The record is a 67-nucleotide sequence from Albula glossodonta, which matches "mir-34 microRNA precursor family" in Rfam. Rfam describes the family as follows. Human mir-34a was discovered computationally and later experimentally verified. The mature sequence is excised from the 5' arm of the hairpin. The literature on the family includes a 2003 paper in Science by Lim et al., "Vertebrate microRNA genes". It scores 60 bits against the family's covariance model. Clan: mir-34 clan.
RNA sequence: GGUCACUAGGCAGUGUAGUUAGCUGAUUGCAGGAUUCGGUAAUCACUAACCACACAGCCAGGUGAAC
Numbered sequence: 001g002g003u004c005a006c007u008a009g010g011c012a013g014u015g016u017a018g019u020u021a022g023c024u025g026a027u028u029g030c031a032g033g034a035u036u037c038g039g040u041a042a043u044c045a046c047u048a049a050c051c052a053c054a055c056a057g058c059c060a061g062g063u064g065a066a067c
Base pairs, nucleotide, nucleotide: 003065004064005063006062009059010058013055014054015053016052018050019049020048021047022046024045025044026043027042028041029040030039